[Rfam]
RNA sequence: AGCAACGUACUCCAAAGUAGUGAACGUAAUUUAUCGUGAGACAGAUCUGAUAUUAUGCUCAUUACUUUGGAUAUGUUGUA
Numbered sequence: 001a002g003c004a005a006c007g008u009a010c011u012c013c014a015a016a017g018u019a020g021u022g023a024a025c026g027u028a029a030u031u032u033a034u035c036g037u038g039a040g041a042c043a044g045a046u047c048u049g050a051u052a053u054u055a056u057g058c059u060c061a062u063u064a065c066u067u068u069g070g071a072u073a074u075g076u077u078g079u080a
Stems, first nucleotide, its partner, number of pairs: 002079005008073002011071013025057005032052004038047002
Source information
The record is an 80-nucleotide RNA sequence from Parnassius apollo, which matches "mir-2763 microRNA precursor family" in Rfam. A search with the family's covariance model found it, with a score of 92 bits. The family has 3 seed sequences and 59 matches in Rfam 15.1. Pairs were carried over by alignment from the consensus structure, which was predicted with RNAalifold. Gene Ontology terms of the family: RISC complex and miRNA-mediated post-transcriptional gene silencing.